[Rfam]
RNA: Group II catalytic intron D1-D4-4
Organism: Actinoallomurus iriomotensis
RNA sequence: UUGCCGGUGGGAGUCCGGUCCGGGUAGCUGCCAGGAGGCCCGGUAGCAGGCUGGCGGUUUCGUCUGGAAACGGGCGGGGUCGAGGCCCAGCGUCAAAGGCCCUUAUGGGGGAGCGAGGAUGCGGUCCGUAGCAUGA
Numbered sequence: 001u002u003g004c005c006g007g008u009g010g011g012a013g014u015c016c017g018g019u020c021c022g023g024g025u026a027g028c029u030g031c032c033a034g035g036a037g038g039c040c041c042g043g044u045a046g047c048a049g050g051c052u053g054g055c056g057g058u059u060u061c062g063u064c065u066g067g068a069a070a071c072g073g074g075c076g077g078g079g080u081c082g083a084g085g086c087c088c089a090g091c092g093u094c095a096a097a098g099g100c101c102c103u104u105a106u107g108g109g110g111g112a113g114c115g116a117g118g119a120u121g122c123g124g125u126c127c128g129u130a131g132c133a134u135g136a
Base pairs, nucleotide, nucleotide: 020043021042022041023040024039050091051090052089053088054087055082056081057080058079059078060077064073066071100110101109102108113129114128115127